Notes:
The record is a 63-nucleotide sequence from Streptomyces abyssalis, which matches "Actino-pnp RNA" in Rfam. It scores 66 bits against the family's covariance model. The organism belongs to Streptomyces, within Bacteria.
RNA sequence: GCCGGUCCUCGGUAGUGGCCCCCGGACACAAGGAAGUUCCGGGUGCUUCGAUCGAAGACCGGC
Numbered sequence: 001g002c003c004g005g006u007c008c009u010c011g012g013u014a015g016u017g018g019c020c021c022c023c024g025g026a027c028a029c030a031a032g033g034a035a036g037u038u039c040c041g042g043g044u045g046c047u048u049c050g051a052u053c054g055a056a057g058a059c060c061g062g063c
Stems, first nucleotide, its partner, number of pairs: 001063007009055005017047003021043006028037002